The record is a 165-nucleotide RNA sequence, which matches "Hepatitis C virus (HCV) cis-acting replication element (CRE)" in Rfam. The family's consensus secondary structure was predicted with RNAfold. Rfam classes the family as a cis-regulatory element.
[Rfam]
RNA sequence: CCAAUACCGGCUGCGUCCCAGCUUGACUUGUCGAGCUGGUUCGUAGCCGGGUACAGCGGGGGAGACGUUUAUCACAGCGCGUCUCGUGCCCGACCCCGCUGGUUCAUGUGGUGCCUACUCCUACUUUCCGUAGGGGUAGGCAUUUACCUGCUCCCCAAUCGAUGA
Numbered sequence: 001c002c003a004a005u006a007c008c009g010g011c012u013g014c015g016u017c018c019c020a021g022c023u024u025g026a027c028u029u030g031u032c033g034a035g036c037u038g039g040u041u042c043g044u045a046g047c048c049g050g051g052u053a054c055a056g057c058g059g060g061g062g063a064g065a066c067g068u069u070u071a072u073c074a075c076a077g078c079g080c081g082u083c084u085c086g087u088g089c090c091c092g093a094c095c096c097c098g099c100u101g102g103u104u105c106a107u108g109u110g111g112u113g114c115c116u117a118c119u120c121c122u123a124c125u126u127u128c129c130g131u132a133g134g135g136g137u138a139g140g141c142a143u144u145u146a147c148c149u150g151c152u153c154c155c156c157a158a159u160c161g162a163u164g165a
Stems, first nucleotide, its partner, number of pairs: 007050007018039009055100007062085006112142013